This 47-nucleotide sequence from Microctonus aethiopoides belongs to the Rfam family "Histone 3' UTR stem-loop". The base pairs follow the family's consensus structure, which is taken from published work. Taxonomically the source falls in Microctonus (Eukaryota, Allotriocarida, Dicondylia, Ichneumonoidea). The literature on the family includes a 1995 paper in Nucleic Acids Res by Williams and Marzluff, "The sequence of the stem and flanking sequences at the 3' end of histone mRNA are critical determinants for the binding of the stem-loop binding protein".
Nucleotides: 047
Base pairs, nucleotide, nucleotide: 006021007020008019009018010017011016
Number, partner (000 for none) and nucleotide at each position: 001000a002000a003000a004000u005000c006021g007020g008019c009018c010017c011016u012000u013000u014000u015000c016011a017010g018009g019008g020007c021006c022000a023000u024000c025000a026000a027000a028000u029000u030000u031000u032000u033000u034000c035000c036000a037000a038000c039000g040000a041000a042000a043000u044000a045000a046000u047000u